[Rfam]
RNA sequence: CAGUGAGGUGAUGGCCUACCAUCUUUCGGGACUGACCAGUAAUGGAGACACCCUUUUUGCUGCUGAUCACUG
Numbered sequence: 001c002a003g004u005g006a007g008g009u010g011a012u013g014g015c016c017u018a019c020c021a022u023c024u025u026u027c028g029g030g031a032c033u034g035a036c037c038a039g040u041a042a043u044g045g046a047g048a049c050a051c052c053c054u055u056u057u058u059g060c061u062g063c064u065g066a067u068c069a070c071u072g
Base pairs, nucleotide, nucleotide: 001072002071003070004069005068006067
Shown here is a 72-nucleotide RNA from Lepisosteus oculatus, a member of the family "Small nucleolar RNA SNORD2". The organism belongs to Lepisosteus, within Eukaryota. By type it is a C/D-box small nucleolar RNA. Rfam 15.1 lists 1,116 matches to the family in 660 species.